[Rfam]
RNA sequence: UUCUUAUCAAGAGAGGUGGAGGGAACAGGCCCUGCGAAACCUCAGCAACCUUCAUGAACAACACUUCAUGAAAAGGUGCUAACUCCAGCUUGCACCCCUAAACGUGCAAGGAAGAUAAGGA
Number, nucleotide and partner (000 for none) at each position: 001u121002u120003c119004u118005u117006a116007u115008c114009a000010a000011g000012a000013g043014a042015g041016g040017u039018g000019g000020a000021g032022g031023g030024a000025a000026c088027a000028g086029g085030c023031c022032c021033u000034g000035c000036g000037a000038a000039a017040c016041c015042u014043c013044a080045g079046c078047a077048a000049c076050c075051u072052u071053c070054a069055u068056g067057a066058a000059c000060a000061a000062c000063a000064c000065u000066u057067c056068a055069u054070g053071a052072a051073a000074a000075g050076g049077u047078g046079c045080u044081a000082a000083c000084u113085c029086c028087a000088g026089c110090u109091u108092g107093c106094a105095c000096c000097c000098c000099u000100a000101a000102a000103c000104g000105u094106g093107c092108a091109a090110g089111g000112a000113a084114g008115a007116u006117a005118a004119g003120g002121a001
Notes
This 121-nucleotide sequence from Jeotgalibacillus campisalis belongs to the Rfam family "SAM riboswitch aptamer (S box leader)". Its family is annotated with regulation of gene expression in the Gene Ontology. Rfam describes the family as follows. The SAM riboswitch is found upstream of a number of genes which code for proteins involved in methionine or cysteine biosynthesis in Gram-positive bacteria. NCBI's taxonomy places the organism under Bacteria, Bacillati, Bacilli, Caryophanaceae, Jeotgalibacillus.